[Rfam]
RNA sequence: GUACUUCCGCGGCAGUAAGCCGCGGCCUCAUUGAAGC
Numbered sequence: 001g002u003a004c005u006u007c008c009g010c011g012g013c014a015g016u017a018a019g020c021c022g023c024g025g026c027c028u029c030a031u032u033g034a035a036g037c
Base pairs, nucleotide, nucleotide: 007025008024009023010022011021012020013019